[Rfam]
RNA sequence: GGCCUUCCUCUGCGGGGUGAUCAAUCUGGGGCCCCGCAAUUGAUCACCCCACAGAGGGAGGCC
Numbered sequence: 001g002g003c004c005u006u007c008c009u010c011u012g013c014g015g016g017g018u019g020a021u022c023a024a025u026c027u028g029g030g031g032c033c034c035c036g037c038a039a040u041u042g043a044u045c046a047c048c049c050c051a052c053a054g055a056g057g058g059a060g061g062c063c
Base pairs, nucleotide, nucleotide: 001063002062003061004060005059006058007057008056009055010054011053012052014050015049016048017047018046019045020044021043022042023041024040025039027036028035029034
mir-9242 microRNA precursor family: a 63-nucleotide sequence from Myotis lucifugus.